Overview:
hya RNA: a 73-nucleotide RNA sequence from Antrihabitans stalactiti. A search with the family's covariance model found it, with a score of 70 bits. The family's consensus secondary structure is taken from published work. The organism belongs to Antrihabitans, within Bacteria.

RNA sequence: AGUGUCACACAAGAGGGCCGACGGUCGACUCCGGUGACACAGGGACUACAGCCCCAGUCCUGGAAGGCAGCUC
Dot-bracket structure: ..((((((.........................))))))..((((((........))))))............
Numbered sequence: 001a002g003u004g005u006c007a008c009a010c011a012a013g014a015g016g017g018c019c020g021a022c023g024g025u026c027g028a029c030u031c032c033g034g035u036g037a038c039a040c041a042g043g044g045a046c047u048a049c050a051g052c053c054c055c056a057g058u059c060c061u062g063g064a065a066g067g068c069a070g071c072u073c
Stems, first nucleotide, its partner, number of pairs: 003039006042061006